[Rfam]
RNA sequence: CAUUUUAAGCAGAAGCCAUCCGCUUCUCACCUUAUGACGCCUGACGGUUGUUAAUAAGGUUCGUACAGCAUUUGUUUAGUUGUAACUGUUGAUUUGCAGCGGAUGGAGUAUGUCCAUCCGUUUUUAGUUUUGGAU
Numbered sequence: 001c002a003u004u005u006u007a008a009g010c011a012g013a014a015g016c017c018a019u020c021c022g023c024u025u026c027u028c029a030c031c032u033u034a035u036g037a038c039g040c041c042u043g044a045c046g047g048u049u050g051u052u053a054a055u056a057a058g059g060u061u062c063g064u065a066c067a068g069c070a071u072u073u074g075u076u077u078a079g080u081u082g083u084a085a086c087u088g089u090u091g092a093u094u095u096g097c098a099g100c101g102g103a104u105g106g107a108g109u110a111u112g113u114c115c116a117u118c119c120g121u122u123u124u125u126a127g128u129u130u131u132g133g134a135u
Base pairs, nucleotide, nucleotide: 011027012026013025014024015023016022029060030059031058036052037051038050039048040047098122099121100120101119102118103117104116105115106114107113
RNA: Ribosomal protein L20 leader
Organism: Thermincola carboxydiphila